[Rfam]
RNA sequence: AUACUAUGAUGGUUGCAUAGUUCAGCAGAUAUUAGUGAAGAAUACUUAUCUUAUUAUCUGAUGUAUCU
Numbered sequence: 001a002u003a004c005u006a007u008g009a010u011g012g013u014u015g016c017a018u019a020g021u022u023c024a025g026c027a028g029a030u031a032u033u034a035g036u037g038a039a040g041a042a043u044a045c046u047u048a049u050c051u052u053a054u055u056a057u058c059u060g061a062u063g064u065a066u067c068u
Stems, first nucleotide, its partner, number of pairs: 001066004006036002010034001013028004041055004
RNA: Small nucleolar RNA SNORD77